The record is a 331-nucleotide part of an RNA from Mucor lusitanicus, which matches "Eukaryotic large subunit ribosomal RNA" in Rfam. For this family Rfam cites "Crystal structure of the ribosome at 5.5 A resolution" (Yusupov et al., Science, 2001).
RNA sequence: CGUUUGGAGCCAGACUGGUUUGCUUGUAAUCAACCUAGAAUUCGUUUUGGGUGCACUUGCAGGCUAUACCUGCCAACAACAGUUUGAUUUGGAGGAAAAAAUUAAUAGGAAUGUAGCCUCUCGAGGUGUUAUAGCCUAUUAUCAUACUCUGGAUUGGACUGAGGAACGCAGCGAAUGCCUUUAGGCAAGAUUGCUGGGUGCUUUCGCUAAUAAAUGUUAGAAUUUCUGCUUCGGGUGGUGCUAAUGUUUAAAGGAGGAACACAUCUAGUAUAUUUUUUAUUCGCUUAGGUUGUUGGCUUAAUGACUCUAAAUGACCCGUCUUGAAACACGG
Numbered sequence: 001c002g003u004u005u006g007g008a009g010c011c012a013g014a015c016u017g018g019u020u021u022g023c024u025u026g027u028a029a030u031c032a033a034c035c036u037a038g039a040a041u042u043c044g045u046u047u048u049g050g051g052u053g054c055a056c057u058u059g060c061a062g063g064c065u066a067u068a069c070c071u072g073c074c075a076a077c078a079a080c081a082g083u084u085u086g087a088u089u090u091g092g093a094g095g096a097a098a099a100a101a102u103u104a105a106u107a108g109g110a111a112u113g114u115a116g117c118c119u120c121u122c123g124a125g126g127u128g129u130u131a132u133a134g135c136c137u138a139u140u141a142u143c144a145u146a147c148u149c150u151g152g153a154u155u156g157g158a159c160u161g162a163g164g165a166a167c168g169c170a171g172c173g174a175a176u177g178c179c180u181u182u183a184g185g186c187a188a189g190a191u192u193g194c195u196g197g198g199u200g201c202u203u204u205c206g207c208u209a210a211u212a213a214a215u216g217u218u219a220g221a222a223u224u225u226c227u228g229c230u231u232c233g234g235g236u237g238g239u240g241c242u243a244a245u246g247u248u249u250a251a252a253g254g255a256g257g258a259a260c261a262c263a264u265c266u267a268g269u270a271u272a273u274u275u276u277u278u279a280u281u282c283g284c285u286u287a288g289g290u291u292g293u294u295g296g297c298u299u300a301a302u303g304a305c306u307c308u309a310a311a312u313g314a315c316c317c318g319u320c321u322u323g324a325a326a327c328a329c330g331g
Stems, first nucleotide, its partner, number of pairs: 001313009011303002017070003021066002024063001074295007316331004